[Rfam]
RNA sequence: GAGUUAUCACGAAAGGCAGAGGGAAUAGACCCGUUGAAGCCUUAGCAACCCUCCUUUGGAGAAGGUGCUACAUUCUACCACUAUAGUGGAUAGAUAACAA
Numbered sequence: 001g002a003g004u005u006a007u008c009a010c011g012a013a014a015g016g017c018a019g020a021g022g023g024a025a026u027a028g029a030c031c032c033g034u035u036g037a038a039g040c041c042u043u044a045g046c047a048a049c050c051c052u053c054c055u056u057u058g059g060a061g062a063a064g065g066u067g068c069u070a071c072a073u074u075c076u077a078c079c080a081c082u083a084u085a086g087u088g089g090a091u092a093g094a095u096a097a098c099a100a
Stems, first nucleotide, its partner, number of pairs: 003098006013043005021032003026077004044069004049065002051061004073092001078089004
The family of this 100-nucleotide RNA sequence from Imtechella halotolerans is "SAM riboswitch aptamer (S box leader)". The family's consensus secondary structure is taken from published work.